Annotation
A member of the RNA family "Acido-Lenti-1 RNA" from Flavipsychrobacter stenotrophus, 46 nucleotides long. The family has 87 seed sequences and 2,607 matches in Rfam 15.1. Pairs were carried over by alignment from the consensus structure, which is taken from published work. A search with the family's covariance model found it, with a score of 40 bits.
RNA sequence: CCCAGGGUUAAAACCCUGGGCUAACAUUAGUAGCCCUUUCAGGGCU
Numbered sequence: 001c002c003c004a005g006g007g008u009u010a011a012a013a014c015c016c017u018g019g020g021c022u023a024a025c026a027u028u029a030g031u032a033g034c035c036c037u038u039u040c041a042g043g044g045c046u
Stems, first nucleotide, its partner, number of pairs: 001020008033045005
Dot-bracket structure: ((((((((....))))))))............(((((...))))).